[Rfam]
A member of the RNA family "Bacterial large subunit ribosomal RNA" from Candidatus Hodgkinia cicadicola, 445 nucleotides of a longer RNA.
RNA sequence: CUCUGCGAAAUCUAUUUAGGUAGAGUGCCAAGUGGACGCUGACUGGGGUAGAGCACUGGAUAGGUGAUGGGAGGUCACACUUUACUGAUCUUAACCAAACUCCGAAUACUGUCUGAACGAUACUUGGUAGCCACACCCCGAGCGCUAACGUUCGGGGUGGAGAGGGCAACAACCCAGACCUGAAGCUAAGGUCCUUAAAUCUAAGCUGAAUGUGGAAGGCUGUCGGCGCCCUGUGACAAUCAGGAUGUGGGCUUAGAAGCGGCCAUCGUCUAAAGAAAGCGUAACAGCUCACUGAUCUAGGAGCGACGGCACCGAAAAUGUAACGGGGCUAAGCUUAGUACCGAAGCUGGGGGCGACAGCCGAUUUGAGCUGCGCGGUAGCAGAGCGUUCCGUAGGCCUGAGAAGGCGCUUCGUGAGGCGCGCUGGAGGUAUCGGAAGUGAGAAU
Numbered sequence: 001c002u003c004u005g006c007g008a009a010a011u012c013u014a015u016u017u018a019g020g021u022a023g024a025g026u027g028c029c030a031a032g033u034g035g036a037c038g039c040u041g042a043c044u045g046g047g048g049u050a051g052a053g054c055a056c057u058g059g060a061u062a063g064g065u066g067a068u069g070g071g072a073g074g075u076c077a078c079a080c081u082u083u084a085c086u087g088a089u090c091u092u093a094a095c096c097a098a099a100c101u102c103c104g105a106a107u108a109c110u111g112u113c114u115g116a117a118c119g120a121u122a123c124u125u126g127g128u129a130g131c132c133a134c135a136c137c138c139c140g141a142g143c144g145c146u147a148a149c150g151u152u153c154g155g156g157g158u159g160g161a162g163a164g165g166g167c168a169a170c171a172a173c174c175c176a177g178a179c180c181u182g183a184a185g186c187u188a189a190g191g192u193c194c195u196u197a198a199a200u201c202u203a204a205g206c207u208g209a210a211u212g213u214g215g216a217a218g219g220c221u222g223u224c225g226g227c228g229c230c231c232u233g234u235g236a237c238a239a240u241c242a243g244g245a246u247g248u249g250g251g252c253u254u255a256g257a258a259g260c261g262g263c264c265a266u267c268g269u270c271u272a273a274a275g276a277a278a279g280c281g282u283a284a285c286a287g288c289u290c291a292c293u294g295a296u297c298u299a300g301g302a303g304c305g306a307c308g309g310c311a312c313c314g315a316a317a318a319u320g321u322a323a324c325g326g327g328g329c330u331a332a333g334c335u336u337a338g339u340a341c342c343g344a345a346g347c348u349g350g351g352g353g354c355g356a357c358a359g360c361c362g363a364u365u366u367g368a369g370c371u372g373c374g375c376g377g378u379a380g381c382a383g384a385g386c387g388u389u390c391c392g393u394a395g396g397c398c399u400g401a402g403a404a405g406g407c408g409c410u411u412c413g414u415g416a417g418g419c420g421c422g423c424u425g426g427a428g429g430u431a432u433c434g435g436a437a438g439u440g441a442g443a444a445u
Base pairs, nucleotide, nucleotide: 001385002384003383004382005381006380011024012023013022014021015020026130027128028127029126030125031124032123033122036121039115041113042112043111045109051103052101053100057097058096059095061093062092063091064090069085070083071082072081073080134159135158136157137156138155139154140153141152142151143150164175165174166173179352180351181350184348185347186346190342191341192340199339201338202337203336204335205334206333218313219312222310223309224308225307227305228304229303230301231300239296240295241294242293243292245269246268247267250264251263252262275290279288280287353375354374355373357372358371359370360369386440388437389436390435391434392433396430397429398428405424406423407422408421409420411418412417